RNA sequence: GUCAGUAACCCAGCCCUAAAGGGACUGAGCUUGCAUGUCGAAAUCAAGCAAGCUUGACCACCACCUAUAAAUAGGUAGCCGUUAUUUGAAUCACGACACCCUGGAAUGCGUAGCUAGUUCCCUGCUCUGUCGCUUGUAAUUAAACAGUUCUAAGGUCACUGGAACAGUGUUGCAAGCCUAACAAGCUCUAAUAACAGGUCGUUCGCGCUGA
Numbered sequence: 001g002u003c004a005g006u007a008a009c010c011c012a013g014c015c016c017u018a019a020a021g022g023g024a025c026u027g028a029g030c031u032u033g034c035a036u037g038u039c040g041a042a043a044u045c046a047a048g049c050a051a052g053c054u055u056g057a058c059c060a061c062c063a064c065c066u067a068u069a070a071a072u073a074g075g076u077a078g079c080c081g082u083u084a085u086u087u088g089a090a091u092c093a094c095g096a097c098a099c100c101c102u103g104g105a106a107u108g109c110g111u112a113g114c115u116a117g118u119u120c121c122c123u124g125c126u127c128u129g130u131c132g133c134u135u136g137u138a139a140u141u142a143a144a145c146a147g148u149u150c151u152a153a154g155g156u157c158a159c160u161g162g163a164a165c166a167g168u169g170u171u172g173c174a175a176g177c178c179u180a181a182c183a184a185g186c187u188c189u190a191a192u193a194a195c196a197g198g199u200c201g202u203u204c205g206c207g208c209u210g211a
Stems, first nucleotide, its partner, number of pairs: 001058005010029001012026002015022002030048004061198002063076005081195006088188002091185001096130002100124001103121005109210002113206002132177009144168002147165006